[Rfam]
RNA sequence: CAGAAUAGCCGUUCUUAACCGUAGACAGCAGGGGUCAAAAAGACUUAAUAAUCCUGCCGAGGUUAAUGGUUUGUUUGAUGGGGUUUUUCAUAACCAUGCCCCGGAUAGCCAGUCAUUACUACCUCCUGUCUAUAGGGAGGUUUUUUUAAUGCAGUU
Numbered sequence: 001c002a003g004a005a006u007a008g009c010c011g012u013u014c015u016u017a018a019c020c021g022u023a024g025a026c027a028g029c030a031g032g033g034g035u036c037a038a039a040a041a042g043a044c045u046u047a048a049u050a051a052u053c054c055u056g057c058c059g060a061g062g063u064u065a066a067u068g069g070u071u072u073g074u075u076u077g078a079u080g081g082g083g084u085u086u087u088u089c090a091u092a093a094c095c096a097u098g099c100c101c102c103g104g105a106u107a108g109c110c111a112g113u114c115a116u117u118a119c120u121a122c123c124u125c126c127u128g129u130c131u132a133u134a135g136g137g138a139g140g141u142u143u144u145u146u147u148a149a150u151g152c153a154g155u156u
Stems, first nucleotide, its partner, number of pairs: 028057006034044003121141007

Source information:
The record is a 156-nucleotide sequence from Halothermothrix orenii, which matches "Ribosomal protein L10 leader" in Rfam. About the family: This family is a putative r-protein leader autoregulatory structure found in B. subtilis and other low-GC Gram-positive bacteria. The source organism's lineage runs through Bacteria, Bacillota, Halanaerobiales, Halothermotrichaceae and Halothermothrix orenii.